[Rfam]
RNA: GcvB RNA
RNA sequence: ACUUCCCGAGCCGGAACGAAAAGUUUUUUUAGAUUUGUGCGUGAGAUCGUGGAUUUUUAGAAAUCUUUUGGCUUGUGGUAGUGAUGUUGUGUUUGCAAUUGAUCUGACACUUUUCAGAUCCGGUAGUCUCACUACCUUUUAAUUCCUGUAGAUUUUCCUGUCUGUCCAUAGUCAUUUUCAUAGCACCGCAAAUUGCGGUGCUUUUUUUU
Numbered sequence: 001a002c003u004u005c006c007c008g009a010g011c012c013g014g015a016a017c018g019a020a021a022a023g024u025u026u027u028u029u030u031a032g033a034u035u036u037g038u039g040c041g042u043g044a045g046a047u048c049g050u051g052g053a054u055u056u057u058u059a060g061a062a063a064u065c066u067u068u069u070g071g072c073u074u075g076u077g078g079u080a081g082u083g084a085u086g087u088u089g090u091g092u093u094u095g096c097a098a099u100u101g102a103u104c105u106g107a108c109a110c111u112u113u114u115c116a117g118a119u120c121c122g123g124u125a126g127u128c129u130c131a132c133u134a135c136c137u138u139u140u141a142a143u144u145c146c147u148g149u150a151g152a153u154u155u156u157c158c159u160g161u162c163u164g165u166c167c168a169u170a171g172u173c174a175u176u177u178u179c180a181u182a183g184c185a186c187c188g189c190a191a192a193u194u195g196c197g198g199u200g201c202u203u204u205u206u207u208u209u
Stems, first nucleotide, its partner, number of pairs: 009073004015069002021067003025063002028061006101120007122136006151179002182202008